[Rfam]
RNA sequence: AACCACACUAUCAAUAGAUAGAUUCACCCAUGAUAUGACGUGGUUGUUCCAUCUAGGACAAGUGCGAUGGCUGGUAAUAGGAUGCCAUGUCCUUGUCCUAGGUGAAACAACCGCGUCAUUUCGCGGGUGAAUCUAUCCAUUGAUAGUGUGGUU
Numbered sequence: 001a002a003c004c005a006c007a008c009u010a011u012c013a014a015u016a017g018a019u020a021g022a023u024u025c026a027c028c029c030a031u032g033a034u035a036u037g038a039c040g041u042g043g044u045u046g047u048u049c050c051a052u053c054u055a056g057g058a059c060a061a062g063u064g065c066g067a068u069g070g071c072u073g074g075u076a077a078u079a080g081g082a083u084g085c086c087a088u089g090u091c092c093u094u095g096u097c098c099u100a101g102g103u104g105a106a107a108c109a110a111c112c113g114c115g116u117c118a119u120u121u122c123g124c125g126g127g128u129g130a131a132u133c134u135a136u137c138c139a140u141u142g143a144u145a146g147u148g149u150g151g152u153u
Base pairs, nucleotide, nucleotide: 001153002152003151004150005149006148007147009145010144011143012142013141014140015139017137018136019135021133022132023131024130025129026128027127028126031123032122033121035119036118037117038116039115041113042112043111044110045109046108047107048106051103052102054100055099057097058096064090065089070085071084
RNA: MIR807 microRNA precursor family
Organism: Oryza nivara